RNA: Small nucleolar RNA snoR104
RNA sequence: GGGGGGCAUCUGUAAGCUUAGAUGUUGGCCGAUACAAUCUUCCUAAAGCAACCUUGCACUUCGGUUUCUUGGAUAGUUGCACUGCCUUAGAGAGCUCUGCAAGUCGAGGAUGAAGUGCAUAUACGA
Numbered sequence: 001g002g003g004g005g006g007c008a009u010c011u012g013u014a015a016g017c018u019u020a021g022a023u024g025u026u027g028g029c030c031g032a033u034a035c036a037a038u039c040u041u042c043c044u045a046a047a048g049c050a051a052c053c054u055u056g057c058a059c060u061u062c063g064g065u066u067u068c069u070u071g072g073a074u075a076g077u078u079g080c081a082c083u084g085c086c087u088u089a090g091a092g093a094g095c096u097c098u099g100c101a102a103g104u105c106g107a108g109g110a111u112g113a114a115g116u117g118c119a120u121a122u123a124c125g126a
Stems, first nucleotide, its partner, number of pairs: 001030002005026007055119003075104001077102005084095002